[Rfam]
RNA sequence: AAUUUGUUUCAGGGCGAGGUGAAAUUCCUCACCGGUGGUAUAGUCCACGAGCUUUUCCGAAAGGGAGAGCAUGAUUCGGUGCAACUCCGAAACCGACGGUAAAUGUCAGGCUUACGCUUGUCACAAGUCCGGAUGAAAGAAACACAGC
Numbered sequence: 001a002a003u004u005u006g007u008u009u010c011a012g013g014g015c016g017a018g019g020u021g022a023a024a025u026u027c028c029u030c031a032c033c034g035g036u037g038g039u040a041u042a043g044u045c046c047a048c049g050a051g052c053u054u055u056u057c058c059g060a061a062a063g064g065g066a067g068a069g070c071a072u073g074a075u076u077c078g079g080u081g082c083a084a085c086u087c088c089g090a091a092a093c094c095g096a097c098g099g100u101a102a103a104u105g106u107c108a109g110g111c112u113u114a115c116g117c118u119u120g121u122c123a124c125a126a127g128u129c130c131g132g133a134u135g136a137a138a139g140a141a142a143c144a145c146a147g148c
Stems, first nucleotide, its partner, number of pairs: 003146001005144006017029003033095002035048004043093002051070002075091005097131003
Rfam assigns this 148-nucleotide RNA from Ruminococcus sp. CAG:353 to the family "FMN riboswitch aptamer (RFN element)". The family's consensus secondary structure is taken from published work. The source organism's lineage runs through Bacteria, Bacillati, Clostridia, Oscillospiraceae and Ruminococcus.